[Rfam]
This 45-nucleotide RNA sequence from Syntrophotalea acetylenica belongs to the Rfam family "Moco-II RNA".
The base pairs follow the family's consensus structure, which is taken from published work.
The source organism's lineage runs through Bacteria, Thermodesulfobacteriota, Desulfuromonadales, Syntrophotaleaceae and Syntrophotalea.
By type it is a cis-regulatory element.
RNA sequence: CGCGCUUACUUCGACCUCUGCUUCGGCAGACUUGGCGAAACCCGC
Number, nucleotide and partner (000 for none) at each position: 001c000002g000003c000004g000005c000006u000007u000008a000009c000010u000011u038012c037013g036014a000015c000016c000017u030018c029019u028020g027021c026022u000023u000024c000025g000026g021027c020028a019029g018030a017031c000032u000033u000034g000035g000036c013037g012038a011039a000040a000041c000042c000043c000044g000045c000